[Rfam]
RNA sequence: UACUGGACUAGACCGGGGAGCUAGGCACUCCCUGUGACCCGUGCCGAAAUGCGGGGGCGACUGUCUGGUGAGGGCAACCAGGCCUUUGGCAGUCUUCAUGAAAUCGUAGAGUCUCUGUCCUUUUGGAUCGGGGGUUUGCAUAUGCAACUUCAAAGGAUGAUGCAUAUACAAUCUGUCGGGAAAACCCCGCCAGGCCCGGAAGGGAACACCGGUAUUCCGAACCAUCGAUGCUGAGAGGGUGCGGGGAGGAGAGGAAGUGGAGGACGCUACCAAAACACCUGGUCUGAACCAGAUGUGUCCAGUA
Numbered sequence: 001u002a003c004u005g006g007a008c009u010a011g012a013c014c015g016g017g018g019a020g021c022u023a024g025g026c027a028c029u030c031c032c033u034g035u036g037a038c039c040c041g042u043g044c045c046g047a048a049a050u051g052c053g054g055g056g057g058c059g060a061c062u063g064u065c066u067g068g069u070g071a072g073g074g075c076a077a078c079c080a081g082g083c084c085u086u087u088g089g090c091a092g093u094c095u096u097c098a099u100g101a102a103a104u105c106g107u108a109g110a111g112u113c114u115c116u117g118u119c120c121u122u123u124u125g126g127a128u129c130g131g132g133g134g135u136u137u138g139c140a141u142a143u144g145c146a147a148c149u150u151c152a153a154a155g156g157a158u159g160a161u162g163c164a165u166a167u168a169c170a171a172u173c174u175g176u177c178g179g180g181a182a183a184a185c186c187c188c189g190c191c192a193g194g195c196c197c198g199g200a201a202g203g204g205a206a207c208a209c210c211g212g213u214a215u216u217c218c219g220a221a222c223c224a225u226c227g228a229u230g231c232u233g234a235g236a237g238g239g240u241g242c243g244g245g246g247a248g249g250a251g252a253g254g255a256a257g258u259g260g261a262g263g264a265c266g267c268u269a270c271c272a273a274a275a276c277a278c279c280u281g282g283u284c285u286g287a288a289c290c291a292g293a294u295g296u297g298u299c300c301a302g303u304a
Base pairs, nucleotide, nucleotide: 001304002303003302004301005300006299007298008297013057014056015033016032017031018030019029020028038055039054040053041052062295063294064293065292066291067290068289069288073285074284079281080280081279085274086273087272088271089270091268092267093266095264096263097262099260101258104255105254107252112247113246114245115244116243117242118241119238120237121236122235123234124233125232126231127229128228129227130226132223133222134173136171137170138169140167141166142165143164144163145162146161148159150157151156176220177219178218179217180216181215187212188211189210195204196203197202